[Rfam]
RNA sequence: UGUCCUAGCUGAGUUAGAGAUCGGCUACGGAUGUAUUAUCAACCCUUAACGAAAAAAGGAUAUUAAAAUGUCUCUAAGCGUAGAAGCAAAAGCAAAAAUCGUUGCUGAAUUUGGUCGUGAUGCA
Numbered sequence: 001u002g003u004c005c006u007a008g009c010u011g012a013g014u015u016a017g018a019g020a021u022c023g024g025c026u027a028c029g030g031a032u033g034u035a036u037u038a039u040c041a042a043c044c045c046u047u048a049a050c051g052a053a054a055a056a057a058g059g060a061u062a063u064u065a066a067a068a069u070g071u072c073u074c075u076a077a078g079c080g081u082a083g084a085a086g087c088a089a090a091a092g093c094a095a096a097a098a099u100c101g102u103u104g105c106u107g108a109a110u111u112u113g114g115u116c117g118u119g120a121u122g123c124a
Stems, first nucleotide, its partner, number of pairs: 007026006045078003057075003
Dot-bracket structure: ......((((((........))))))..................(((.........(((.............))))))..............................................

This 124-nucleotide RNA sequence from Actinobacillus pleuropneumoniae belongs to the Rfam family "Ribosomal S15 leader". The family is grouped with related families in Rfam's "Ribosomal Protein S15 Leader clan". From the family's description: The E. coli Ribosomal S15 gene 5' UTR can form two alternative structures. Rfam classes the family as a cis-regulatory leader. The source organism's lineage runs through Bacteria, Pasteurellales, Actinobacillus, Actinobacillus pleuropneumoniae and Actinobacillus pleuropneumoniae serovar 5. Gene Ontology term of the family: regulation of translation, ncRNA-mediated.